[Rfam]
RNA sequence: GGUAGCCAUAAAUCACAGCGGGGUCGAGGGUUGGGUUUGUCACCAAGCGCACCGUUUGCGUGGCUGCGUCAUACAGUCCGCCCCAAUACAUCGCCUUGGCAACCAGCAGCAGCGCUCCUGCACCCAAAAACAGCAGGUGAUGUCCGAGAAUCAUCCCAAGUUGUUUGGGAUUAUCCCA
Numbered sequence: 001g002g003u004a005g006c007c008a009u010a011a012a013u014c015a016c017a018g019c020g021g022g023g024u025c026g027a028g029g030g031u032u033g034g035g036u037u038u039g040u041c042a043c044c045a046a047g048c049g050c051a052c053c054g055u056u057u058g059c060g061u062g063g064c065u066g067c068g069u070c071a072u073a074c075a076g077u078c079c080g081c082c083c084c085a086a087u088a089c090a091u092c093g094c095c096u097u098g099g100c101a102a103c104c105a106g107c108a109g110c111a112g113c114g115c116u117c118c119u120g121c122a123c124c125c126a127a128a129a130a131c132a133g134c135a136g137g138u139g140a141u142g143u144c145c146g147a148g149a150a151u152c153a154u155c156c157c158a159a160g161u162u163g164u165u166u167g168g169g170a171u172u173a174u175c176c177c178a
Base pairs, nucleotide, nucleotide: 136175137174138173139172140171141170144169145168147166148165
RNA: Antisense RNA which regulates isiA expression
Organism: Thermoleptolyngbya sichuanensis